This 95-nucleotide sequence from Rossellomorea marisflavi belongs to the Rfam family "pan motif". Pairs were carried over by alignment from the consensus structure, which is taken from published work. Rfam classes the family as a cis-regulatory element.
RNA sequence: UGGGCAGUAUCUCUCAGGAACUGCACCUUAAAGCGGUUACAUCCAUACGUGAAAACUAAAAUCUGCCUUGAUCCGUUCAGGACUGGGACAGAGGG
Number, nucleotide and partner (000 for none) at each position: 001u000002g027003g026004g024005c023006a022007g021008u020009a000010u019011c018012u000013c000014u000015c000016a000017g000018g011019a010020a008021c007022u006023g005024c004025a000026c003027c002028u000029u000030a000031a000032a000033g000034c000035g000036g000037u000038u000039a000040c000041a000042u000043c000044c000045a000046u000047a000048c000049g000050u000051g000052a000053a000054a000055a000056c000057u000058a000059a000060a000061a000062u000063c091064u090065g089066c087067c086068u085069u000070g083071a000072u082073c081074c080075g000076u000077u000078c000079a000080g074081g073082a072083c070084u000085g068086g067087g066088a000089c065090a064091g063092a000093g000094g000095g000